[Rfam]
RNA sequence: GUGAUCCUUGUCUUGGGGAGCUGAGUCUGUCAAUGAUCGUUUAGUGAGCCAACUCUGCUGAAGCCAAGUAAUAAAUAUAUCGCACCCAAAUAAUUUUUUGAGUGCAAUUUUUGGAAGC
Numbered sequence: 001g002u003g004a005u006c007c008u009u010g011u012c013u014u015g016g017g018g019a020g021c022u023g024a025g026u027c028u029g030u031c032a033a034u035g036a037u038c039g040u041u042u043a044g045u046g047a048g049c050c051a052a053c054u055c056u057g058c059u060g061a062a063g064c065c066a067a068g069u070a071a072u073a074a075a076u077a078u079a080u081c082g083c084a085c086c087c088a089a090a091u092a093a094u095u096u097u098u099u100g101a102g103u104g105c106a107a108u109u110u111u112u113g114g115a116a117g118c
Base pairs, nucleotide, nucleotide: 005019006018007017008016009015020058021057023055024054025053026052028051029050031048038044082105083104084103085102087100088096089095090094
RNA: U4atac minor spliceosomal RNA